Plastid-psbM 3UTR RNA: an 87-nucleotide RNA sequence from Acer yangbiense. Plastid psbM is a non-coding RNA (ncRNA) recognised in plastids. The family's RNA type in Rfam is cis-regulatory element. The literature on the family includes a 2023 paper in Plant Commun by Richter et al., "Retrograde signaling in plants: A critical review focusing on the GUN pathway and beyond".
[Rfam]
RNA sequence: AUAGUAAUAGUAUGGUCGAACGAUUUAAAAAUGAAUCGUUCAACCAUACUAUCCAUUUUUAUUAUUGUAAUCUAGAAACUGAAUUGA
Numbered sequence: 001a002u003a004g005u006a007a008u009a010g011u012a013u014g015g016u017c018g019a020a021c022g023a024u025u026u027a028a029a030a031a032u033g034a035a036u037c038g039u040u041c042a043a044c045c046a047u048a049c050u051a052u053c054c055a056u057u058u059u060u061a062u063u064a065u066u067g068u069a070a071u072c073u074a075g076a077a078a079c080u081g082a083a084u085u086g087a
Stems, first nucleotide, its partner, number of pairs: 007052010018041010